Potassium channel RNA editing signal: a 114-nucleotide RNA from Ursus americanus. Rfam links the family to the GO term adenosine to inosine editing. The source organism's lineage runs through Eukaryota, Deuterostomia, Tetrapoda, Boreoeutheria and Ursus. Pairs were carried over by alignment from the consensus structure, which is taken from published work. It scores 85 bits against the family's covariance model.
RNA sequence: CCCAGGUAUGGUGACAUGGUUCCAAAAACCAUAGCAGGGAAGAUUUUUGGCUCCAUCUGUUCGCUGAGUGGGGUCUUGGUCAUUGCCCUACCUGUUCCGGUGAUUGUAUCUAAC
Dot-bracket structure: ...((.(((((..((..((.(...............((((.........(...........)...........))))................).))..))..))))).))...

The literature on the family includes a 2004 paper in Nat Struct Mol Biol by Bhalla et al., "Control of human potassium channel inactivation by editing of a small mRNA hairpin".